[Rfam]
RNA: TeloSII non coding RNA 33
RNA sequence: UUUAUCCUCAUCAGCCAAAUUCUGAUUACAAAAGCUACACUCUCAAUCUCUUAUUUACAUCAAAACAGAUAUCAACAAUCCCACACCAAAAUGUUUGAUGCACAAUCACAACUAAAAUAGAUAAGGAAUUUUUUUCAAAAUUUCAAGGUAAAAUUCUGCAAUUGUAUUAUAUAUUAUUUAAACAAGAGAAGCCUCCUCCUGAAGUUUCUGGUGGUUGAUUGAUAAGCACGAGCGAGAAGACCCACACCAAUCCCAAGGCCAACACAGACACCAAGUCCAAG
Number, nucleotide and partner (000 for none) at each position: 001u000002u000003u000004a000005u000006c000007c000008u000009c000010a000011u202012c201013a200014g199015c000016c000017a000018a000019a000020u000021u000022c000023u057024g056025a055026u000027u053028a052029c000030a000031a000032a041033a000034g000035c000036u000037a000038c000039a000040c000041u032042c000043u000044c000045a000046a000047u000048c000049u000050c000051u000052u028053a027054u000055u025056u024057a023058c000059a000060u000061c000062a000063a000064a000065a000066c000067a000068g000069a000070u000071a000072u000073c000074a000075a000076c000077a000078a000079u000080c000081c000082c000083a000084c000085a000086c000087c000088a000089a000090a000091a000092u000093g000094u116095u115096u114097g113098a000099u110100g109101c000102a000103c000104a000105a000106u000107c000108a000109c100110a099111a000112c000113u097114a096115a095116a094117a000118u000119a000120g000121a000122u000123a000124a197125g196126g195127a194128a000129u000130u000131u000132u191133u190134u189135u188136c000137a000138a000139a000140a000141u000142u000143u187144c186145a000146a000147g183148g000149u000150a000151a000152a000153a000154u000155u000156c000157u000158g000159c000160a000161a170162u169163u000164g000165u000166a000167u000168u000169a162170u161171a000172u000173a000174u000175u000176a000177u000178u000179u000180a000181a000182a000183c147184a000185a000186g144187a143188g135189a134190a133191g132192c000193c000194u127195c126196c125197u124198c000199c014200u013201g012202a011203a000204g272205u000206u270207u268208c267209u266210g265211g263212u262213g000214g259215u258216u257217g252218a251219u250220u249221g248222a000223u000224a000225a000226g245227c000228a000229c000230g242231a000232g000233c239234g000235a000236g000237a000238a000239g233240a000241c000242c230243c000244a000245c226246a000247c000248c221249a220250a219251u218252c217253c000254c000255a000256a000257g216258g215259c214260c000261a000262a212263c211264a000265c210266a209267g208268a207269c000270a206271c000272c204273a000274a000275g000276u000277c000278c000279a000280a000281g000